[Rfam]
RNA sequence: CGCAAGUUUCAGGGAAGGUGAAAAUCCUUACUGGCGGUAACUUCCAUUCCGAUGUCUUUCGACGCAUAACGGUGAAGAAGAAGCCCGCGACCCGCGUCAAGCGGCUGAUCCGGUGGGAAUCCGGGGCCAACGGUUACAGUCCGGAUGGAAGAAACGAGGC
Numbered sequence: 001c002g003c004a005a006g007u008u009u010c011a012g013g014g015a016a017g018g019u020g021a022a023a024a025u026c027c028u029u030a031c032u033g034g035c036g037g038u039a040a041c042u043u044c045c046a047u048u049c050c051g052a053u054g055u056c057u058u059u060c061g062a063c064g065c066a067u068a069a070c071g072g073u074g075a076a077g078a079a080g081a082a083g084c085c086c087g088c089g090a091c092c093c094g095c096g097u098c099a100a101g102c103g104g105c106u107g108a109u110c111c112g113g114u115g116g117g118a119a120u121c122c123g124g125g126g127c128c129a130a131c132g133g134u135u136a137c138a139g140u141c142c143g144g145a146u147g148g149a150a151g152a153a154a155c156g157a158g159g160c
Stems, first nucleotide, its partner, number of pairs: 003158001006155005016028003030140002032129002034088004092104002109125005131143003
Rfam assigns this 160-nucleotide RNA sequence from Bifidobacterium subtile to the family "FMN riboswitch aptamer (RFN element)".